Record summary:
Rfam assigns this 104-nucleotide RNA from Nitrosomonas eutropha to the family "Guanidine-I riboswitch aptamer". Taxonomically the source falls in Nitrosomonas eutropha (Bacteria, Nitrosomonadales, Nitrosomonadaceae, Nitrosomonas).
RNA sequence: AUUACUUUGGGCUAGGGUUCCGGCUUUCCAAGGGAAGUGACUGGUCCGAGGGCCCGAGGCUUCUCCAUAACGAAGCGCCACGGAGGGAUAAAAGCCCGGGAGAU
Number, nucleotide and partner (000 for none) at each position: 001a000002u000003u000004a000005c000006u000007u057008u056009g055010g054011g053012c052013u000014a000015g047016g046017g000018u000019u000020c044021c043022g041023g038024c037025u036026u035027u034028c033029c000030a000031a000032g000033g028034g027035a026036a025037g024038u023039g000040a000041c022042u000043g021044g020045u000046c016047c015048g000049a000050g000051g000052g012053c011054c010055c009056g008057a007058g000059g076060c075061u074062u073063c072064u000065c000066c000067a000068u000069a000070a000071c000072g063073a062074a061075g060076c059077g000078c000079c099080a000081c102082g000083g000084a000085g097086g096087g095088a000089u000090a000091a000092a000093a000094g000095c087096c086097c085098g000099g079100g000101a000102g081103a000104u000